Notes: Shown here is a 72-nucleotide RNA sequence from Rodentolepis nana, a member of the family "HDV ribozyme from F. prausnitzii". Its family is annotated with catalytic activity in the Gene Ontology.

[Rfam]
RNA sequence: GGGGUGCGUGAUAGACUAACCUCCACGUGGUGCACCCUGGGCAACGUAUACCCAUACGGCAAACAAGUCUGU
Numbered sequence: 001g002g003g004g005u006g007c008g009u010g011a012u013a014g015a016c017u018a019a020c021c022u023c024c025a026c027g028u029g030g031u032g033c034a035c036c037c038u039g040g041g042c043a044a045c046g047u048a049u050a051c052c053c054a055u056a057c058g059g060c061a062a063a064c065a066a067g068u069c070u071g072u
Stems, first nucleotide, its partner, number of pairs: 001038007019031003045058005

Pairs were carried over by alignment from the consensus structure, which is taken from published work.
The match comes from Rfam's covariance-model search (46 bits).